RNA sequence: CUGCAGCUAAUGAAGCCAACCAUGCUCCUUUCCUCAUGGGGACCUGGUGUGCAGUGGCUGUAAACAGCAGUCUCCUUGGUGGUAUAUGCAGCCUGUUGCUUGUAUGGGUUGCUCUAAGACACCUUGGAGACAUUC
Number, nucleotide and partner (000 for none) at each position: 001c000002u053003g052004c051005a050006g000007c000008u000009a000010a000011u000012g000013a000014a000015g000016c000017c000018a000019a048020c047021c046022a045023u000024g000025c000026u041027c040028c039029u000030u000031u000032c000033c000034u000035c000036a000037u000038g000039g028040g027041g026042a000043c000044c000045u022046g021047g020048u019049g000050u005051g004052c003053a002054g000055u000056g000057g000058c000059u000060g000061u000062a000063a000064a000065c000066a000067g000068c000069a000070g000071u000072c000073u000074c000075c000076u000077u000078g123079g122080u121081g000082g000083u000084a000085u000086a000087u000088g000089c111090a110091g109092c108093c107094u106095g000096u000097u000098g000099c000100u000101u000102g000103u000104a000105u000106g094107g093108g092109u091110u090111g089112c000113u000114c000115u000116a000117a000118g000119a000120c000121a080122c079123c078124u000125u000126g000127g000128a000129g000130a000131c000132a000133u000134u000135c000
This 135-nucleotide sequence from Otolemur garnettii belongs to the Rfam family "Small nucleolar RNA SNORA70". A search with the family's covariance model found it, with a score of 140 bits. snoRNA U70 seems to be exclusive to mammals and is a member of the H/ACA class of snoRNA which contain H (ANANNA) and ACA box motifs. For this family Rfam cites "Pseudouridine in RNA: what, where, how, and why" (Charette and Gray, IUBMB Life, 2000). The source organism's lineage runs through Eukaryota, Eumetazoa, Vertebrata, Euarchontoglires and Otolemur.